[Rfam]
RNA: RAGATH-18 RNA
Nucleotides: 060
Base pairs, nucleotide, nucleotide: 001058002057003056004055009047010046011045012044013043021042022041023040029035030034
Number, partner (000 for none) and nucleotide at each position: 001058c002057c003056u004055a005000c006000g007000g008000a009047g010046u011045g012044u013043c014000a015000a016000a017000a018000c019000a020000a021042c022041c023040a024000u025000a026000g027000u028000a029035g030034a031000u032000u033000a034030u035029c036000g037000a038000g039000g040023u041022g042021g043013g044012a045011c046010a047009c048000g049000a050000u051000g052000a053000a054000c055004u056003a057002g058001g059000a060000a